The family of this 162-nucleotide RNA from Flintibacter hominis is "M-box riboswitch aptamer (ykoK leader)". The base pairs follow the family's consensus structure. About the family: M-box riboswitch, also know as ykoK leader is described as a metaloregulatory RNA that sense divalent metals and function as a genetic control element of genes related to divalent metal transport in bacteria. It was first reported upstream of the B.subtilis ykoK gene and genes with related functions in other bacteria. NCBI's taxonomy places the organism under Bacteria, Bacillati, Clostridia, Eubacteriales, Flintibacter. A reference for the family is Barrick et al. (2004), "New RNA motifs suggest an expanded scope for riboswitches in bacterial genetic control", Proc Natl Acad Sci U S A.
[Rfam]
RNA sequence: CCCGUAAUCCGGUAGGUAAGGCUACCGUGGGGAUAUGGGUCGCUGCCGCAAAGGGAUGGAGACAUCCUUCGUUGGUUUGAACAGGUCCUGUCGAACAGAAGGCAGGAUUUAACGCGACUUCACCGCCCCGCGAUGCUAAAGCUUGGACGGUGGCAUGAUAGG
Numbered sequence: 001c002c003c004g005u006a007a008u009c010c011g012g013u014a015g016g017u018a019a020g021g022c023u024a025c026c027g028u029g030g031g032g033a034u035a036u037g038g039g040u041c042g043c044u045g046c047c048g049c050a051a052a053g054g055g056a057u058g059g060a061g062a063c064a065u066c067c068u069u070c071g072u073u074g075g076u077u078u079g080a081a082c083a084g085g086u087c088c089u090g091u092c093g094a095a096c097a098g099a100a101g102g103c104a105g106g107a108u109u110u111a112a113c114g115c116g117a118c119u120u121c122a123c124c125g126c127c128c129c130g131c132g133a134u135g136c137u138a139a140a141g142c143u144u145g146g147a148c149g150g151u152g153g154c155a156u157g158a159u160a161g162g
Base pairs, nucleotide, nucleotide: 005158007156008155010153011148013100015143016142017141020137021136022135026132027131028130029129030128031127032126039118040117041116042115043114045076046075047074048073055066056065057064058063084109085108086107087106090103091102092101